The family of this 108-nucleotide sequence from Nostoc flagelliforme is "Guanidine-I riboswitch aptamer". The base pairs follow the family's consensus structure. This family represents a conserved RNA structure found upstream of the ykkC and yxkD genes in Bacillus subtilis and related genes in other bacteria. The function of this family is unclear although it has been suggested that it may function to switch on efflux pumps and detoxification systems in response to harmful environmental molecules. A reference for the family is Nelson et al. (2017), "Metabolism of Free Guanidine in Bacteria Is Regulated by a Widespread Riboswitch Class", Mol Cell.

[Rfam]
RNA sequence: AGGAUGAGCUUCUAGGGUUCCGAUCGCGCCUUUGUGUGUGAUGGCUGGUCCAAGAGAAGCAGCCGACUUUGAGAGUCGGUCACACGGCGGGAAAAAUGCCCGGGAGAG
Numbered sequence: 001a002g003g004a005u006g007a008g009c010u011u012c013u014a015g016g017g018u019u020c021c022g023a024u025c026g027c028g029c030c031u032u033u034g035u036g037u038g039u040g041a042u043g044g045c046u047g048g049u050c051c052a053a054g055a056g057a058a059g060c061a062g063c064c065g066a067c068u069u070u071g072a073g074a075g076u077c078g079g080u081c082a083c084a085c086g087g088c089g090g091g092a093a094a095a096a097u098g099c100c101c102g103g104g105a106g107a108g
Base pairs, nucleotide, nucleotide: 008060009059010058011057012056015051016050020048021047022045023042024041025040026039027038028037062080063079064078065077066076067075068074083103085106089101090100091099